Group II catalytic intron D1-D4-1: an 85-nucleotide RNA from Weizmannia acidilactici. About the family: Group II introns are found in rRNA, tRNA and mRNA of organelles in fungi, plants and protists, and also in mRNA in bacteria. The match comes from Rfam's covariance-model search (64 bits). Rfam 15.1 lists 2,508 matches to the family in 1,144 species. A reference for the family is Chu et al. (2001), "Control of branch-site choice by a group II intron", EMBO J.
[Rfam]
RNA sequence: UAACCAGUCUAGUGAUAGAUUGAUGAACAAUCAGAAGUCAGCAGAGGUCAUCGUACAAAUAAGGUAGCUCCUCAUUUGGAAGGAC
Numbered sequence: 001u002a003a004c005c006a007g008u009c010u011a012g013u014g015a016u017a018g019a020u021u022g023a024u025g026a027a028c029a030a031u032c033a034g035a036a037g038u039c040a041g042c043a044g045a046g047g048u049c050a051u052c053g054u055a056c057a058a059a060u061a062a063g064g065u066a067g068c069u070c071c072u073c074a075u076u077u078g079g080a081a082g083g084a085c
Base pairs, nucleotide, nucleotide: 001025002024005022006021007020008019009018010017011016038045039044047085048084049083056078057077058076059075060074